A member of the RNA family "Group II catalytic intron D1-D4-7" from Noviherbaspirillum pedocola, 148 nucleotides long. Its family is annotated with Group II intron splicing in the Gene Ontology.

[Rfam]
RNA sequence: CUUGUUGUUCCCUCAACGGUAGCCUACCGGUGCGGGCGAAGCUGGUAACGGCUUGGUUCGAAGCCACCGGGACAAUGUAGCCCCUCGUUAGAGAAAGAAGUGCCGCGAGACACUUUCCAGUGCUGCCAGCAUCGGCGCGGCACGGGCA
Numbered sequence: 001c002u003u004g005u006u007g008u009u010c011c012c013u014c015a016a017c018g019g020u021a022g023c024c025u026a027c028c029g030g031u032g033c034g035g036g037c038g039a040a041g042c043u044g045g046u047a048a049c050g051g052c053u054u055g056g057u058u059c060g061a062a063g064c065c066a067c068c069g070g071g072a073c074a075a076u077g078u079a080g081c082c083c084c085u086c087g088u089u090a091g092a093g094a095a096a097g098a099a100g101u102g103c104c105g106c107g108a109g110a111c112a113c114u115u116u117c118c119a120g121u122g123c124u125g126c127c128a129g130c131a132u133c134g135g136c137g138c139g140g141c142a143c144g145g146g147c148a
Stems, first nucleotide, its partner, number of pairs: 002019006028069005033060005039054006084093003097117003104109001122141005
For this family Rfam cites "The ins and outs of group II introns" (Bonen and Vogel, Trends Genet, 2001). From the family's description: Group II introns are found in rRNA, tRNA and mRNA of organelles in fungi, plants and protists, and also in mRNA in bacteria.